[Rfam]
The record is a 102-nucleotide RNA from Bacillus sp. FJAT-18017, which matches "Purine riboswitch aptamer" in Rfam.
RNA sequence: UUAAUUUUAUAAAACUACACUCGUAUAAUCGCAGGGAUAUGGCCUGCAAGUUUCUACCGGAUAACCUUAAAUUAUUCGACUAUGGGUGGCAUGUGUGGAUUG
Numbered sequence: 001u002u003a004a005u006u007u008u009a010u011a012a013a014a015c016u017a018c019a020c021u022c023g024u025a026u027a028a029u030c031g032c033a034g035g036g037a038u039a040u041g042g043c044c045u046g047c048a049a050g051u052u053u054c055u056a057c058c059g060g061a062u063a064a065c066c067u068u069a070a071a072u073u074a075u076u077c078g079a080c081u082a083u084g085g086g087u088g089g090c091a092u093g094u095g096u097g098g099a100u101u102g
Base pairs, nucleotide, nucleotide: 018088019087020086021085022084023083024082025081029049031047032046033045034044035043058078059077060076061075062074063073064072
A search with the family's covariance model found it, with a score of 87 bits. Pairs were carried over by alignment from the consensus structure, which is taken from published work. Riboswitches are metabolite binding domains within certain messenger RNAs that serve as precision sensors for their corresponding targets.